The family of this 266-nucleotide RNA sequence from Brevibacillus laterosporus is "Bacterial large signal recognition particle RNA". Rfam links the family to the GO terms SRP-dependent cotranslational protein targeting to membrane, signal sequence recognition and signal recognition particle, plasma membrane targeting. The family's consensus secondary structure is taken from published work.
RNA sequence: CCGUGCUAGAUGGGGAGGUUGCGGUGCCCUGUAACCUGCAAUCCGCAAUAGCAGGAUUGAAUUCCUAUCAGCGGUCAUUUUAUGUGAGGUCUGCCUUAUACCGUUGGUGUUGAGGAUUGGGUCCUAUGCAACGUGAACCUAUGAACCUGGUCAGGUCCGGAAGGAAGCAGCCAUAAGUAGGACCUUGCGUGUGCCGUAGGGUAGCCUGGUCUGAGUCAAUUGUAUAAGUAACGCUCGGAUGGAAUGUAUCAAUGAUAGGUGCACGG
Numbered sequence: 001c002c003g004u005g006c007u008a009g010a011u012g013g014g015g016a017g018g019u020u021g022c023g024g025u026g027c028c029c030u031g032u033a034a035c036c037u038g039c040a041a042u043c044c045g046c047a048a049u050a051g052c053a054g055g056a057u058u059g060a061a062u063u064c065c066u067a068u069c070a071g072c073g074g075u076c077a078u079u080u081u082a083u084g085u086g087a088g089g090u091c092u093g094c095c096u097u098a099u100a101c102c103g104u105u106g107g108u109g110u111u112g113a114g115g116a117u118u119g120g121g122u123c124c125u126a127u128g129c130a131a132c133g134u135g136a137a138c139c140u141a142u143g144a145a146c147c148u149g150g151u152c153a154g155g156u157c158c159g160g161a162a163g164g165a166a167g168c169a170g171c172c173a174u175a176a177g178u179a180g181g182a183c184c185u186u187g188c189g190u191g192u193g194c195c196g197u198a199g200g201g202u203a204g205c206c207u208g209g210u211c212u213g214a215g216u217c218a219a220u221u222g223u224a225u226a227a228g229u230a231a232c233g234c235u236c237g238g239a240u241g242g243a244a245u246g247u248a249u250c251a252a253u254g255a256u257a258g259g260u261g262c263a264c265g266g
Base pairs, nucleotide, nucleotide: 001266002265003264004263005262006261009058010057011056012030013029014028015027017025019023035055036054037053038052039051064259065258066257067256068255069254070253073250074249075248076246077245079243080242081241082240083239085237086236087235088234092230093229096227097226098225099224100223101222105219106217107216108215114212115211116210117209118208119207120206121205122204123200124199125198126197127196128195129191130190132189133188134187135186136185138181139180140179141178142177148173149172150171151170156165157164158163
Record summary
The source organism's lineage runs through Bacteria, Bacillati, Paenibacillaceae, Brevibacillus and Brevibacillus laterosporus. It is annotated as a non-coding RNA gene.